[Rfam]
RNA sequence: GGCAGAUGAUGGUUUAUUCUCACGAUGGUCUGCGAAUGCCGCUGAAGGCGCUGCCGAAAAUGCCAGUGACUCAGCUGAUGCCAGGAG
Numbered sequence: 001g002g003c004a005g006a007u008g009a010u011g012g013u014u015u016a017u018u019c020u021c022a023c024g025a026u027g028g029u030c031u032g033c034g035a036a037u038g039c040c041g042c043u044g045a046a047g048g049c050g051c052u053g054c055c056g057a058a059a060a061u062g063c064c065a066g067u068g069a070c071u072c073a074g075c076u077g078a079u080g081c082c083a084g085g086a087g
Base pairs, nucleotide, nucleotide: 001082002081003080004079